[Rfam]
RNA sequence: GGGCCAGCUUUAGCUCGGUGGUUACUUUGACAAUGCUUUCUAUGGUGGAAAACAACCACUCCGUGUGGUUCGAGACCCGUGGGUGCUCUCCGGCCCUUCA
Numbered sequence: 001g002g003g004c005c006a007g008c009u010u011u012a013g014c015u016c017g018g019u020g021g022u023u024a025c026u027u028u029g030a031c032a033a034u035g036c037u038u039u040c041u042a043u044g045g046u047g048g049a050a051a052a053c054a055a056c057c058a059c060u061c062c063g064u065g066u067g068g069u070u071c072g073a074g075a076c077c078c079g080u081g082g083g084u085g086c087u088c089u090c091c092g093g094c095c096c097u098u099c100a
Base pairs, nucleotide, nucleotide: 002095003094004093005092007090013084014083015082016081018080019079020078021077026074027073028072029071030070

The record is a 100-nucleotide sequence from Saimiri boliviensis, which matches "Vault RNA" in Rfam. NCBI's taxonomy places the organism under Eukaryota, Theria, Haplorrhini, Cebidae, Saimiri boliviensis. Rfam classes the family as a non-coding RNA gene. This family of RNAs are found as part of the enigmatic vault ribonucleoprotein complex. The complex consists of a major vault protein (MVP), two minor vault proteins (VPARP and TEP1), and several small untranslated RNA molecules. It has been suggested that the vault complex is involved in drug resistance.